[Rfam]
Overview:
The family of this 533-nucleotide part of an RNA from Elaeis guineensis is "Eukaryotic small subunit ribosomal RNA". The family's consensus secondary structure is taken from published work. Lineage of the source: Eukaryota > Embryophyta > Petrosaviidae > Arecaceae > Elaeis. It scores 1203 bits against the family's covariance model.
RNA sequence: GUUGCAGUUGAAAAGCUCGUAGUUGGACCUUGAGCUGGAUCGACCAAUCUGCCCCACGGUGUGCACCGAUCUUCCCACCCUUUUGCCAACAAUGCACUCCUAUCCUUAACUGGAUGGAUCAUGCCGCCAGUGCCGUUACUUUGAAGAAAUUAGAAUGUUCAAAGCAAGCCCACAUUUUGGAUACAUUAGCAUGGGAUAACAGUAUAGGAUUUUGGUCCUUAUUGUGUUGGCAUUCGAGAUCAGAGUAAUGAUUAAGAGGGAUAGCCAGGGACAUUCGUAUUUCAUAGUCAGAGGUGAAAUUCUUGGAUUUAUAAAAAACGAACCACUAUGAAAGUAUUUGCUAAGAAUGUUUUUAUUAAUCAAGAACAAAAGUUGGAAGCUCGAAGAUGAUUAGAUACCAUCCUUGUCUUAACCAUAAAUAUUGCCGACCAAGGAUCGGCGGAUGUUACUUUCAGGACUCUACCGACACCUUACGAGAAAUCAAAAUUUGGGUUCUAGGAGGAGUAUAGUCCAAGGCUGAAACUUAAAGGAAU
Numbered sequence: 001g002u003u004g005c006a007g008u009u010g011a012a013a014a015g016c017u018c019g020u021a022g023u024u025g026g027a028c029c030u031u032g033a034g035c036u037g038g039a040u041c042g043a044c045c046a047a048u049c050u051g052c053c054c055c056a057c058g059g060u061g062u063g064c065a066c067c068g069a070u071c072u073u074c075c076c077a078c079c080c081u082u083u084u085g086c087c088a089a090c091a092a093u094g095c096a097c098u099c100c101u102a103u104c105c106u107u108a109a110c111u112g113g114a115u116g117g118a119u120c121a122u123g124c125c126g127c128c129a130g131u132g133c134c135g136u137u138a139c140u141u142u143g144a145a146g147a148a149a150u151u152a153g154a155a156u157g158u159u160c161a162a163a164g165c166a167a168g169c170c171c172a173c174a175u176u177u178u179g180g181a182u183a184c185a186u187u188a189g190c191a192u193g194g195g196a197u198a199a200c201a202g203u204a205u206a207g208g209a210u211u212u213u214g215g216u217c218c219u220u221a222u223u224g225u226g227u228u229g230g231c232a233u234u235c236g237a238g239a240u241c242a243g244a245g246u247a248a249u250g251a252u253u254a255a256g257a258g259g260g261a262u263a264g265c266c267a268g269g270g271a272c273a274u275u276c277g278u279a280u281u282u283c284a285u286a287g288u289c290a291g292a293g294g295u296g297a298a299a300u301u302c303u304u305g306g307a308u309u310u311a312u313a314a315a316a317a318a319c320g321a322a323c324c325a326c327u328a329u330g331a332a333a334g335u336a337u338u339u340g341c342u343a344a345g346a347a348u349g350u351u352u353u354u355a356u357u358a359a360u361c362a363a364g365a366a367c368a369a370a371a372g373u374u375g376g377a378a379g380c381u382c383g384a385a386g387a388u389g390a391u392u393a394g395a396u397a398c399c400a401u402c403c404u405u406g407u408c409u410u411a412a413c414c415a416u417a418a419a420u421a422u423u424g425c426c427g428a429c430c431a432a433g434g435a436u437c438g439g440c441g442g443a444u445g446u447u448a449c450u451u452u453c454a455g456g457a458c459u460c461u462a463c464c465g466a467c468a469c470c471u472u473a474c475g476a477g478a479a480a481u482c483a484a485a486a487u488u489u490g491g492g493u494u495c496u497a498g499g500a501g502g503a504g505u506a507u508a509g510u511c512c513a514a515g516g517c518u519g520a521a522a523c524u525u526a527a528a529g530g531a532a533u
Stems, first nucleotide, its partner, number of pairs: 006496002013494001015367001017365002022360003258354004262349002266345001270342001272340002276320002280316003284312004291302003328335002372413005382406001386402004424493003428487001431471001433469001436466004441461003445458003475482002499525003508518004